[Rfam]
RNA sequence: ACUAUCCUUAUCUUGGGGUUGCGCUACUGUUCAAUGAACGUCUGGUGAGGACAGUACUGCUAACACCUACACAACACUUUAGCAUCCUUGGGGUUUAUUCCCCACGUGAGGUGCAAUUUUUGGAACC
Numbered sequence: 001a002c003u004a005u006c007c008u009u010a011u012c013u014u015g016g017g018g019u020u021g022c023g024c025u026a027c028u029g030u031u032c033a034a035u036g037a038a039c040g041u042c043u044g045g046u047g048a049g050g051a052c053a054g055u056a057c058u059g060c061u062a063a064c065a066c067c068u069a070c071a072c073a074a075c076a077c078u079u080u081a082g083c084a085u086c087c088u089u090g091g092g093g094u095u096u097a098u099u100c101c102c103c104a105c106g107u108g109a110g111g112u113g114c115a116a117u118u119u120u121u122g123g124a125a126c127c
Base pairs, nucleotide, nucleotide: 006018007017008016009015021060022059023058026055027054028053029052030051031050032049038046039045082114083113084112085111086110087108089104090103091102092101093100

A member of the RNA family "U4atac minor spliceosomal RNA" from Notechis scutatus, 127 nucleotides long.
On this family, see Lorkovic et al., RNA 2005: "Evolutionary conservation of minor U12-type spliceosome between plants and humans".
The organism belongs to Notechis, within Eukaryota.
Rfam 15.1 lists 1,648 matches to the family in 818 species.
Rfam links the family to the GO terms spliceosomal tri-snRNP complex assembly, U4atac snRNP and mRNA 5'-splice site recognition.
Pairs were carried over by alignment from the consensus structure, which is taken from published work.
Clan: U4 clan.
The family's RNA type in Rfam is spliceosomal small nuclear RNA.
From the family's description: U4atac is an essential component of the minor U12-type spliceosome complex which is required for removal of the rarer class of eukaryotic introns (AT-AC, U12-type).